[Rfam]
RNA: Nitrogen stress-induced RNA 1
Organism: Leptolyngbyaceae cyanobacterium LF-bin-369
RNA sequence: UGGUAGAUGCACCCUGAUUUCAACCGCCGACCCAUGCCUAGUGAGUCGGCGGUUUUUUUA
Dot-bracket structure: .(((......)))..........((((((((.((.......)).))))))))........
Numbered sequence: 001u002g003g004u005a006g007a008u009g010c011a012c013c014c015u016g017a018u019u020u021c022a023a024c025c026g027c028c029g030a031c032c033c034a035u036g037c038c039u040a041g042u043g044a045g046u047c048g049g050c051g052g053u054u055u056u057u058u059u060a
Stems, first nucleotide, its partner, number of pairs: 002013003024052008033043002